[Rfam]
RNA: msiK RNA
RNA sequence: CACGGACACCCACAACGGAUCGUCCGGCACGUACCUGCCGGUGGGAAGGAAUC
Numbered sequence: 001c002a003c004g005g006a007c008a009c010c011c012a013c014a015a016c017g018g019a020u021c022g023u024c025c026g027g028c029a030c031g032u033a034c035c036u037g038c039c040g041g042u043g044g045g046a047a048g049g050a051a052u053c
Base pairs, nucleotide, nucleotide: 009045010044011043012042024041025040026039027038028037029036